[Rfam]
RNA sequence: AGCCUCCUACUGCUUACCACAGGCUGUGUGUUCUUAUACUGACUGUAUGGAAAGAGGAGGCAAAGGAAACCUAACCCCAAGUACACCCCAGCCUGAGCCACUGUGCCUGGUCUGUAUUGUGAAUGGGGAGACAUGG
Numbered sequence: 001a002g003c004c005u006c007c008u009a010c011u012g013c014u015u016a017c018c019a020c021a022g023g024c025u026g027u028g029u030g031u032u033c034u035u036a037u038a039c040u041g042a043c044u045g046u047a048u049g050g051a052a053a054g055a056g057g058a059g060g061c062a063a064a065g066g067a068a069a070c071c072u073a074a075c076c077c078c079a080a081g082u083a084c085a086c087c088c089c090a091g092c093c094u095g096a097g098c099c100a101c102u103g104u105g106c107c108u109g110g111u112c113u114g115u116a117u118u119g120u121g122a123a124u125g126g127g128g129a130g131a132c133a134u135g136g
Stems, first nucleotide, its partner, number of pairs: 002061007020045003026039004075128005089114003093110003097106002
This 136-nucleotide RNA sequence from Jaculus jaculus belongs to the Rfam family "Small nucleolar RNA SNORA51".
Rfam classes the family as an H/ACA-box small nucleolar RNA.
Rfam describes the family as follows. ACA51 is a member of the H/ACA class of snoRNA that guide the sites of modification of uridines to pseudouridines.
It scores 124 bits against the family's covariance model.